[Rfam]
RNA sequence: UAGCGCUAAUACAUCUGGCUGAGCGGGAGCUCCAAUUAGGGCACAUAGAACCGUCGCUUAGCUGUUGGAAUACACCUGUCUUUGUGAUUCGGAAGGCAUCUGGAUCCUAUCGUCUGUUGCAUGACUUGCGUGCUGUUAAUGCUAAACUAGUUCCUUUUGGGGCAGUCCAGCAGGGGGCACCAGUCCUUUCGGCGCUCCCGCGUGGUUGGCCCCUUAUGGUACUGGACCUCAAGGACUGCUUCUUUUCUAUUCCCCUCGCGGAGCAGGACCGCGAAGCUUUUGCAUUCAC
Numbered sequence: 001u002a003g004c005g006c007u008a009a010u011a012c013a014u015c016u017g018g019c020u021g022a023g024c025g026g027g028a029g030c031u032c033c034a035a036u037u038a039g040g041g042c043a044c045a046u047a048g049a050a051c052c053g054u055c056g057c058u059u060a061g062c063u064g065u066u067g068g069a070a071u072a073c074a075c076c077u078g079u080c081u082u083u084g085u086g087a088u089u090c091g092g093a094a095g096g097c098a099u100c101u102g103g104a105u106c107c108u109a110u111c112g113u114c115u116g117u118u119g120c121a122u123g124a125c126u127u128g129c130g131u132g133c134u135g136u137u138a139a140u141g142c143u144a145a146a147c148u149a150g151u152u153c154c155u156u157u158u159g160g161g162g163c164a165g166u167c168c169a170g171c172a173g174g175g176g177g178c179a180c181c182a183g184u185c186c187u188u189u190c191g192g193c194g195c196u197c198c199c200g201c202g203u204g205g206u207u208g209g210c211c212c213c214u215u216a217u218g219g220u221a222c223u224g225g226a227c228c229u230c231a232a233g234g235a236c237u238g239c240u241u242c243u244u245u246u247c248u249a250u251u252c253c254c255c256u257c258g259c260g261g262a263g264c265a266g267g268a269c270c271g272c273g274a275a276g277c278u279u280u281u282g283c284a285u286u287c288a289c
Base pairs, nucleotide, nucleotide: 012119013118017114018113019112021110051068052067055064056063086106087105088104089103090102091101092100141272142271147267148266150264151263152262153261159213160212161211162210163209165207167205168204169203173199174198175197176196177195178194180192182189183188216250217249218248219247
Dot-bracket structure: ...........((...(((.(.............................((..((......))..)).................(((((((.......)))))))...).)))...)).....................((....((.((((.....(((((.(.(((...((((((.(.((....))..).))))))...))).).)))))..((((...........................))))..........)))).))...)).................
Shown here is a 289-nucleotide sequence from Phasianus colchicus, a member of the family "Retroviral 3'UTR stability element". Rfam 15.1 lists 188 matches to the family in 22 species. Taxonomically the source falls in Phasianus (Eukaryota, Euteleostomi, Neognathae, Phasianidae). The family's consensus secondary structure is taken from published work. A reference for the family is Weil and Beemon (2006), "A 3' UTR sequence stabilizes termination codons in the unspliced RNA of Rous sarcoma virus", RNA. A search with the family's covariance model found it, with a score of 268 bits.